RNA sequence: AUAAAAUUGGCCGCUUCGGUCAGGGCCAACUAUUGCCUGAAAAGGGUAA
Dot-bracket structure: ........(((((...)))))............................
The family of this 49-nucleotide RNA is "algC RNA".
Pairs were carried over by alignment from the consensus structure, which is taken from published work.
It is one of the family's seed sequences.